[Rfam]
RNA sequence: GAACACGAUUUAGAAUUGCAGAGUCAAGCGGAUCGCGGCCUUCGGGCUCGCGAUGGCUUGGGGAAAUUCCCCGGACACUAGGGCAGAGAGUGCCGGCGUCCAAGCGCAGAUCCCCUCGCGACGAAGCUACUGAGAUGGCCGGCGUGCAAGCGUCGGUCGGAGUGCUACGCCGAGUCGCGAGGACUGAUCGUCAUACUAACAGUUAUGCAAUUGGCUCCACGGCACCAUGCAGACGUCGUGCUGCAGCCGUGUCGAGCUAACCCGACGGGGAUUACUCAUGUUGUGUU
Number, nucleotide and partner (000 for none) at each position: 001g000002a287003a286004c285005a284006c283007g282008a281009u280010u000011u278012a000013g000014a212015a211016u210017u209018g208019c207020a000021g000022a000023g000024u061025c060026a059027a058028g057029c056030g000031g000032a000033u000034c000035g051036c050037g049038g047039c046040c045041u000042u000043c000044g000045g040046g039047c038048u000049c037050g036051c035052g000053a000054u000055g000056g029057c028058u027059u026060g025061g024062g000063g000064a000065a273066a272067u271068u000069c270070c269071c268072c267073g000074g000075a000076c000077a000078c000079u000080a000081g000082g094083g093084c092085a091086g000087a000088g000089a000090g000091u085092g084093c083094c082095g000096g107097c106098g105099u104100c000101c000102a000103a000104g099105c098106g097107c096108a000109g184110a000111u182112c000113c000114c000115c000116u180117c179118g178119c177120g176121a175122c000123g000124a000125a000126g000127c000128u000129a000130c174131u000132g000133a000134g000135a000136u000137g000138g000139c000140c000141g000142g000143c000144g000145u000146g000147c000148a000149a000150g000151c000152g000153u000154c000155g000156g000157u000158c000159g000160g170161a000162g168163u167164g000165c000166u000167a163168c162169g000170c160171c000172g000173a000174g130175u121176c120177g119178c118179g117180a116181g000182g111183a000184c109185u000186g000187a000188u000189c000190g000191u000192c000193a000194u000195a000196c000197u000198a000199a000200c000201a000202g000203u000204u000205a000206u000207g019208c018209a017210a016211u015212u014213g000214g257215c256216u255217c254218c000219a252220c251221g250222g000223c000224a000225c000226c000227a000228u000229g000230c000231a000232g000233a000234c000235g000236u000237c000238g000239u000240g000241c000242u000243g000244c000245a000246g000247c000248c000249g000250u221251g220252u219253c000254g217255a216256g215257c214258u000259a000260a000261c000262c000263c000264g000265a000266c000267g072268g071269g070270g069271a067272u066273u065274a000275c000276u000277c000278a011279u000280g009281u008282u007283g006284u005285g004286u003287u002

The family of this 287-nucleotide sequence from [Pythium] brassicae is "RNase MRP". By type it is a ribozyme. RNase MRP is an enzymatically active ribonucleoprotein with two distinct roles in eukaryotes. Rfam 15.1 lists 3,510 matches to the family in 2,315 species. Lineage of the source: Eukaryota > Sar > Stramenopiles > Oomycota > Globisporangium. Gene Ontology terms of the family: ribonuclease MRP activity, rRNA processing and ribonuclease MRP complex. The match comes from Rfam's covariance-model search (111 bits).